A member of the RNA family "c-di-AMP riboswitch aptamer (ydaO/yuaA leader)" from Streptomyces oceani, 141 nucleotides long. Rfam links the family to the GO terms cyclic-di-AMP binding and regulation of gene expression. About the family: This family represents a conserved RNA structure found upstream of the ydaO and yuaA genes in Bacillus subtilis and related genes in other bacteria. The source organism's lineage runs through Bacteria, Actinomycetes, Kitasatosporales, Streptomycetaceae and Streptomyces. It scores 78 bits against the family's covariance model.
[Rfam]
RNA sequence: AACUCGAUACCACUGCACCGAGGGAGCCGGGGAACCACUACUUGGGGUGAAUCGGACUCGUCCCGCCCAUGGACGCGCCCGUAGGAGACCUUCCUGCUCCGAACCCGUCAGCUAACCCGGUAGGCGAGAAGGAAGGAAGGA
Numbered sequence: 001a002a003c004u005c006g007a008u009a010c011c012a013c014u015g016c017a018c019c020g021a022g023g024g025a026g027c028c029g030g031g032g033a034a035c036c037a038c039u040a041c042u043u044g045g046g047g048u049g050a051a052u053c054g055g056a057c058u059c060g061u062c063c064c065g066c067c068c069a070u071g072g073a074c075g076c077g078c079c080c081g082u083a084g085g086a087g088a089c090c091u092u093c094c095u096g097c098u099c100c101g102a103a104c105c106c107g108u109c110a111g112c113u114a115a116c117c118c119g120g121u122a123g124g125c126g127a128g129a130a131g132g133a134a135g136g137a138a139g140g141a
Stems, first nucleotide, its partner, number of pairs: 004024002026121006036044002045106003053081003084100004